The record is a 183-nucleotide sequence from Enterococcus saccharolyticus, which matches "Enterococcus sRNA 2410" in Rfam. A reference for the family is Sinel et al. (2017), "Small RNAs in vancomycin-resistant Enterococcus faecium involved in daptomycin response and resistance", Sci Rep. The organism belongs to Enterococcus saccharolyticus subsp. saccharolyticus, within Bacteria. The match comes from Rfam's covariance-model search (79 bits). Rfam's curators write: Produced as 2 transcripts on Northern blot. Expressed in mid, late exponential and early stationary phases of growth. Expression remained uniform under daptomycin exposure.
[Rfam]
RNA sequence: UUAGCUAUUUUAGAUAGGUUUGUAUUCAUGAAACCAUGGGUACAAACAGACAGUUUGUAUCUAUGAUGGCUAGAGUGAUUCGUAUUGAUUUUAAGCCACGUAGAUAGGGAAAAUCUAUGGUGGCUGAGUAUAAAUUUUCAUACUUUUUUUGAGUAUUAAAAUGUCCACUAGUAGAUUUUUCAA
Number, nucleotide and partner (000 for none) at each position: 001u073002u072003a071004g070005c069006u068007a067008u000009u000010u000011u063012a062013g061014a060015u059016a058017g000018g047019u046020u045021u044022g043023u042024a041025u040026u039027c038028a037029u036030g000031a000032a000033a000034c000035c000036a029037u028038g027039g026040g025041u024042a023043c022044a021045a020046a019047c018048a000049g000050a054051c000052a000053g000054u050055u000056u000057g000058u016059a015060u014061c013062u012063a011064u000065g000066a000067u007068g006069g005070c004071u003072a002073g001074a000075g000076u000077g000078a000079u000080u140081c000082g138083u000084a136085u000086u134087g000088a000089u000090u000091u000092u000093a000094a125095g124096c123097c122098a121099c120100g000101u117102a116103g115104a000105u000106a000107g000108g000109g000110a000111a000112a000113a000114u000115c103116u102117a101118u000119g000120g099121u098122g097123g096124c095125u094126g000127a000128g000129u000130a000131u000132a000133a000134a086135u000136u084137u000138u082139c000140a080141u167142a164143c163144u000145u000146u161147u160148u159149u000150u000151g000152a000153g000154u000155a000156u000157u000158a000159a148160a147161a146162u000163g143164u142165c000166c000167a141168c000169u000170a000171g000172u000173a000174g000175a000176u000177u000178u000179u000180u000181c000182a000183a000